[Rfam]
RNA sequence: UUUCCCAUUUGUUUGCUGCUCUGGUCUCUCAGUGAUGGGAGCAGUUAUACGCGUGGGAUAAAAUAACAUUGGGCCAUUGUAAAUCGAGAUGAAGUGUGUGUUUUGUCUCUUCUGCAUGGUCUAGACAUUG
Number, nucleotide and partner (000 for none) at each position: 001u000002u000003u058004c057005c056006c055007a054008u053009u000010u000011g000012u000013u000014u000015g045016c044017u043018g042019c041020u040021c039022u037023g036024g000025u035026c034027u000028c000029u000030c000031a000032g000033u000034g026035a025036u023037g022038g000039g021040a020041g019042c018043a017044g016045u015046u000047a000048u000049a000050c000051g000052c000053g008054u007055g006056g005057g004058a003059u000060a000061a000062a000063a000064u000065a000066a000067c000068a000069u124070u123071g122072g121073g120074c119075c118076a117077u000078u116079g115080u114081a113082a000083a000084u000085c000086g109087a108088g107089a106090u105091g104092a103093a102094g101095u100096g000097u000098g000099u000100g095101u094102u093103u092104u091105g090106u089107c088108u087109c086110u000111u000112c000113u081114g080115c079116a078117u076118g075119g074120u073121c072122u071123a070124g069125a000126c000127a000128u000129u000130g000
Rfam assigns this 130-nucleotide RNA sequence from Mesocricetus auratus to the family "Small nucleolar RNA SNORA20". Rfam classes the family as an H/ACA-box small nucleolar RNA. Its Rfam clan is "SNORA20 clan". The family's consensus secondary structure was predicted with ILM. Rfam's curators write: ACA20 is a member of the H/ACA class of snoRNA that guide the sites of modification of uridines to pseudouridines. The match comes from Rfam's covariance-model search (134 bits). Its family is annotated with RNA processing and nucleolus in the Gene Ontology.